[Rfam]
RNA sequence: GAUGAAAAUAAGCUUAAUUUCCGUUAAGGCGGAAAGCGGGGGAACCAAUUAAUUGGGGCGAAUCAUGAUCCAUGUAGGGAACCAUCUUUCCCGAGCCCGACAGCUAACCUCGUCAGCAUAGGAUGGGUCAGUC
Dot-bracket structure: ...........(((...(((((((....)))))))((((((....((......))(((.....((((...))))..((((........))))...))).........)))))).)))................
Numbered sequence: 001g002a003u004g005a006a007a008a009u010a011a012g013c014u015u016a017a018u019u020u021c022c023g024u025u026a027a028g029g030c031g032g033a034a035a036g037c038g039g040g041g042g043a044a045c046c047a048a049u050u051a052a053u054u055g056g057g058g059c060g061a062a063u064c065a066u067g068a069u070c071c072a073u074g075u076a077g078g079g080a081a082c083c084a085u086c087u088u089u090c091c092c093g094a095g096c097c098c099g100a101c102a103g104c105u106a107a108c109c110u111c112g113u114c115a116g117c118a119u120a121g122g123a124u125g126g127g128u129c130a131g132u133c
Stems, first nucleotide, its partner, number of pairs: 012117003018035007036113006046055002056098003064074004077092004